[Rfam]
RNA sequence: AUUGAAAACUUAAUAGAUUUUGAACCUAGUGUAGAGAGUUUGAACAGCUUGCUAGGAUAACGUGGCGUGAAUCUGGAUAUAAUCGAAGGUGCGAUAGUGCUUUGGGUUGUAGGUAGGUCUUAUGGUAACAUAGGAGAAACUAUUAGUAAAAGCUAAUAUCAGUUAAGCGUUAUGUGGAGUAUACAUGGAUUGUAAGGUACAAGACUCUUGGGGGAUACAAUAGACGUUCCUGUGGAAAAGAAUCCAAGUUAGGUGGAAGUGUGAGAAGCUUGGCAGACCUUGGAAAACUCAAAAGACUCCCUUUGACGAGAACUGUAGAAAUACAGGUUUAACAAGAGACCUUGGUACAAGUAGCUUAAGUCAGCGUUGGAUGAAAAUAUUAUAGACAACAUAUAGGUUAAAAUGAACUCUUAUGUAAACUAAUACUUUAAUGCUGAAUGUUUAGGUGAACGUUGUUAGCCACCGUGCUAGACCAUACAUUUAAGGCAGAGAGAAGCUAUUGGGUAGCUCCCGAUGGUUCAGCCUCUCUGAGUAUGUGACUGAAUACAAUGAGUGUAUAUGAAGCAGGAAGAAAAGCCCUUAAUCUAUUAAGUUUUG
Numbered sequence: 001a002u003u004g005a006a007a008a009c010u011u012a013a014u015a016g017a018u019u020u021u022g023a024a025c026c027u028a029g030u031g032u033a034g035a036g037a038g039u040u041u042g043a044a045c046a047g048c049u050u051g052c053u054a055g056g057a058u059a060a061c062g063u064g065g066c067g068u069g070a071a072u073c074u075g076g077a078u079a080u081a082a083u084c085g086a087a088g089g090u091g092c093g094a095u096a097g098u099g100c101u102u103u104g105g106g107u108u109g110u111a112g113g114u115a116g117g118u119c120u121u122a123u124g125g126u127a128a129c130a131u132a133g134g135a136g137a138a139a140c141u142a143u144u145a146g147u148a149a150a151a152g153c154u155a156a157u158a159u160c161a162g163u164u165a166a167g168c169g170u171u172a173u174g175u176g177g178a179g180u181a182u183a184c185a186u187g188g189a190u191u192g193u194a195a196g197g198u199a200c201a202a203g204a205c206u207c208u209u210g211g212g213g214g215a216u217a218c219a220a221u222a223g224a225c226g227u228u229c230c231u232g233u234g235g236a237a238a239a240g241a242a243u244c245c246a247a248g249u250u251a252g253g254u255g256g257a258a259g260u261g262u263g264a265g266a267a268g269c270u271u272g273g274c275a276g277a278c279c280u281u282g283g284a285a286a287a288c289u290c291a292a293a294a295g296a297c298u299c300c301c302u303u304u305g306a307c308g309a310g311a312a313c314u315g316u317a318g319a320a321a322u323a324c325a326g327g328u329u330u331a332a333c334a335a336g337a338g339a340c341c342u343u344g345g346u347a348c349a350a351g352u353a354g355c356u357u358a359a360g361u362c363a364g365c366g367u368u369g370g371a372u373g374a375a376a377a378u379a380u381u382a383u384a385g386a387c388a389a390c391a392u393a394u395a396g397g398u399u400a401a402a403a404u405g406a407a408c409u410c411u412u413a414u415g416u417a418a419a420c421u422a423a424u425a426c427u428u429u430a431a432u433g434c435u436g437a438a439u440g441u442u443u444a445g446g447u448g449a450a451c452g453u454u455g456u457u458a459g460c461c462a463c464c465g466u467g468c469u470a471g472a473c474c475a476u477a478c479a480u481u482u483a484a485g486g487c488a489g490a491g492a493g494a495a496g497c498u499a500u501u502g503g504g505u506a507g508c509u510c511c512c513g514a515u516g517g518u519u520c521a522g523c524c525u526c527u528c529u530g531a532g533u534a535u536g537u538g539a540c541u542g543a544a545u546a547c548a549a550u551g552a553g554u555g556u557a558u559a560u561g562a563a564g565c566a567g568g569a570a571g572a573a574a575a576g577c578c579c580u581u582a583a584u585c586u587a588u589u590a591a592g593u594u595u596u597g
Stems, first nucleotide, its partner, number of pairs: 007594012020582001022580001025056005036050005058172006078111005084105001086103007113140002118135007143156005179560008190551001193548001196547001197541001200344004205338006211302005227237004243284006253274002256271001258270003262291004303364003313326005348452001354447006433523004457472001459469001475535003489529001491527001493525001496519001498516007567578002